[Rfam]
Nucleotides: 104
Stems, first nucleotide, its partner, number of pairs: 003058001005056004010027003014023001035050002039047001041045001066104001068102003071096002075092003078088003
Number, partner (000 for none) and nucleotide at each position: 001000a002000c003058g004000c005056u006055g007054a008053c009000a010027a011026c012025g013000c014023u015000c016000u017000u018000u019000g020000g021000u022000c023014a024000u025012u026011g027010u028000c029000a030000g031000a032000c033000a034000a035050a036049u037000c038000a039047g040000c041045c042000c043000c044000c045041g046000c047039c048000c049036a050035u051000g052000c053008g054007u055006u056005g057000c058003c059000a060000u061000a062000a063000a064000a065000u066104u067000a068102a069101u070100c071096g072095c073000u074000u075092c076091u077090g078088g079087u080086g081000u082000a083000a084000u085000a086080u087079g088078c089000u090077c091076a092075g093000c094000g095072g096071c097000a098000a099000u100070g101069a102068u103000c104066a